[Rfam]
RNA sequence: UAAGCGUUCCUGAGAGGGAACGUUGAACGGACAGAAGUCAGCAGAGGUCAUAGUACCUGCAAGGGGACGCCCAAGCAGGGAAGGAC
Numbered sequence: 001u002a003a004g005c006g007u008u009c010c011u012g013a014g015a016g017g018g019a020a021c022g023u024u025g026a027a028c029g030g031a032c033a034g035a036a037g038u039c040a041g042c043a044g045a046g047g048u049c050a051u052a053g054u055a056c057c058u059g060c061a062a063g064g065g066g067a068c069g070c071c072c073a074a075g076c077a078g079g080g081a082a083g084g085a086c
Stems, first nucleotide, its partner, number of pairs: 001025002004023008038045002047086003056079005